Shown here is a 60-nucleotide RNA from Meleagris gallopavo, a member of the family "U7 small nuclear RNA". Pairs were carried over by alignment from the consensus structure, which was predicted with PFOLD. From the family's description: Animal histone pre-mRNAs are spliced by a different mechanism than nuclear pre-mRNAs and self-splicing introns. This processing involves the U7 snRNP, which contains only one RNA species: U7. The 5' end of U7 RNA is thought to base-pair to a conserved spacer element downstream of the cleavage site in histone pre-mRNA. This family contains a number of annotated U7 pseudogenes. For this family Rfam cites "3' end processing of mouse histone pre-mRNA: evidence for additional base-pairing between U7 snRNA and pre-mRNA" (Spycher et al., Nucleic Acids Res, 1994).
[Rfam]
RNA sequence: AAGUGAUUUCAGCUCCUUUGGUAUUUGUCCAGCAGGUUUCCCACUCCGUGGGAAGCCCUG
Numbered sequence: 001a002a003g004u005g006a007u008u009u010c011a012g013c014u015c016c017u018u019u020g021g022u023a024u025u026u027g028u029c030c031a032g033c034a035g036g037u038u039u040c041c042c043a044c045u046c047c048g049u050g051g052g053a054a055g056c057c058c059u060g
Stems, first nucleotide, its partner, number of pairs: 035057010